[Rfam]
A member of the RNA family "mir-219 microRNA precursor family" from Ladona fulva, 74 nucleotides long. The source organism's lineage runs through Eukaryota, Arthropoda, Allotriocarida, Hexapoda and Ladona. For this family Rfam cites "Computational identification of Drosophila microRNA genes" (Lai et al., Genome Biol, 2003). Rfam links the family to the GO terms miRNA-mediated post-transcriptional gene silencing and RISC complex. A search with the family's covariance model found it, with a score of 68 bits.
RNA sequence: CCAGGCUGUGAUUGUCCAAACGCAAUUCUUGUUGUCACGAAAAUCAAGAACUGUGCGUGGACAUCAACGCUUGG
Numbered sequence: 001c002c003a004g005g006c007u008g009u010g011a012u013u014g015u016c017c018a019a020a021c022g023c024a025a026u027u028c029u030u031g032u033u034g035u036c037a038c039g040a041a042a043a044u045c046a047a048g049a050a051c052u053g054u055g056c057g058u059g060g061a062c063a064u065c066a067a068c069g070c071u072u073g074g
Stems, first nucleotide, its partner, number of pairs: 002073005009066004014062005021055004026050006